Record summary:
A member of the RNA family "mraW RNA" from Williamsia sp. 1138, 100 nucleotides long. It is annotated as a cis-regulatory element. Taxonomically the source falls in Williamsia (Bacteria, Actinomycetes, Mycobacteriales, Nocardiaceae). It scores 77 bits against the family's covariance model.

[Rfam]
RNA sequence: UCACGUGGGUGAAUCGAGGCCUCUGCCCGAUCCGACCCUGACGCACUUCCCCAGCGCCAGGUUCGGUCGGGCAGGGACCAGGAUUCAUCCGCGGGUCACU
Numbered sequence: 001u002c003a004c005g006u007g008g009g010u011g012a013a014u015c016g017a018g019g020c021c022u023c024u025g026c027c028c029g030a031u032c033c034g035a036c037c038c039u040g041a042c043g044c045a046c047u048u049c050c051c052c053a054g055c056g057c058c059a060g061g062u063u064c065g066g067u068c069g070g071g072c073a074g075g076g077a078c079c080a081g082g083a084u085u086c087a088u089c090c091g092c093g094g095g096u097c098a099c100u
Base pairs, nucleotide, nucleotide: 010087011086012085013084014083015082018079019078021076022075023074024073025072026071027070028069029068030067032066033065034064035063037061038060039059040058042056043055044054